The record is a 120-nucleotide RNA sequence, which matches "Plastid-psbA-1 3UTR RNA" in Rfam. For this family Rfam cites "Retrograde signaling in plants: A critical review focusing on the GUN pathway and beyond" (Richter et al., Plant Commun, 2023). Plastid psbA-1 is a non-coding RNA (ncRNA) present in plastids. It was identified in inverted repeat sequences in the 3 prime untranslate region (3UTR) of photosystem II quinone-binding protein (psbA). Its Rfam clan is "Plastid-psbA 3UTR RNA clan". The sequence is in the family's curated seed alignment. By type it is a cis-regulatory element.
[Rfam]
RNA sequence: GUUGAAGCUCCAUCUACAAAUGGGUAAGGCCGGGUCUUAGUCUAUACGAGUUUUUGAAAUAUUAAAAAAGGAGCAAUAACCUCUUUCUUGUUCUAUCAAGAGGCGGUCUUGCUCCUUUUU
Numbered sequence: 001g002u003u004g005a006a007g008c009u010c011c012a013u014c015u016a017c018a019a020a021u022g023g024g025u026a027a028g029g030c031c032g033g034g035u036c037u038u039a040g041u042c043u044a045u046a047c048g049a050g051u052u053u054u055u056g057a058a059a060u061a062u063u064a065a066a067a068a069a070g071g072a073g074c075a076a077u078a079a080c081c082u083c084u085u086u087c088u089u090g091u092u093c094u095a096u097c098a099a100g101a102g103g104c105g106g107u108c109u110u111g112c113u114c115c116u117u118u119u120u
Base pairs, nucleotide, nucleotide: 009024010023011022012021013020067118068117069116070115071114072113073112074111075110076109078107082103085102086101087100088099089098
Dot-bracket structure: ........(((((......)))))..........................................((((((((((.(...(..(((((........))))))...).))))))))))..